[Rfam]
RNA sequence: AAGAAAGUGACUGCCGCCCCGCACAGGGGCAACACUAAUAGACCGACGCGAAAGCAAGUUUCACUCAAACCCUCGAAGCCUCAGAACGCCCCCGCGCCGCGCGAGAAAAAA
Numbered sequence: 001a002a003g004a005a006a007g008u009g010a011c012u013g014c015c016g017c018c019c020c021g022c023a024c025a026g027g028g029g030c031a032a033c034a035c036u037a038a039u040a041g042a043c044c045g046a047c048g049c050g051a052a053a054g055c056a057a058g059u060u061u062c063a064c065u066c067a068a069a070c071c072c073u074c075g076a077a078g079c080c081u082c083a084g085a086a087c088g089c090c091c092c093c094g095c096g097c098c099g100c101g102c103g104a105g106a107a108a109a110a111a
Stems, first nucleotide, its partner, number of pairs: 011078002014075001016030005058070003095103003